[Rfam]
RNA sequence: AGCAUGGGGACCCGCGACCUCCCCACGAGGCGACAUGCCGAAGUAUCGCGUCUUGCUCUUCGCGAGGCGCUUUAGUAUG
Number, nucleotide and partner (000 for none) at each position: 001a000002g000003c000004a000005u025006g024007g023008g022009g021010a020011c000012c000013c000014g000015c000016g000017a000018c000019c000020u010021c009022c008023c007024c006025a005026c000027g000028a000029g000030g000031c000032g000033a000034c000035a000036u000037g000038c000039c000040g000041a000042a000043g000044u000045a000046u000047c000048g070049c069050g068051u067052c066053u065054u000055g000056c000057u000058c000059u000060u000061c000062g000063c000064g000065a053066g052067g051068c050069g049070c048071u000072u000073u000074a000075g000076u000077a000078u000079g000
RNA: chrB-a RNA